[Rfam]
RNA sequence: ACUGGCAUAAUGAUGAUUUCCUUUUUGCCGUUUACCCAACUGAAUGUCAUUUCGUUGAUGUAUAUUUCUCAAUCUGAGAUGCCAGC
Numbered sequence: 001a002c003u004g005g006c007a008u009a010a011u012g013a014u015g016a017u018u019u020c021c022u023u024u025u026u027g028c029c030g031u032u033u034a035c036c037c038a039a040c041u042g043a044a045u046g047u048c049a050u051u052u053c054g055u056u057g058a059u060g061u062a063u064a065u066u067u068c069u070c071a072a073u074c075u076g077a078g079a080u081g082c083c084a085g086c
Stems, first nucleotide, its partner, number of pairs: 002085006
RNA: Small nucleolar RNA SNORD87
Organism: Chrysemys picta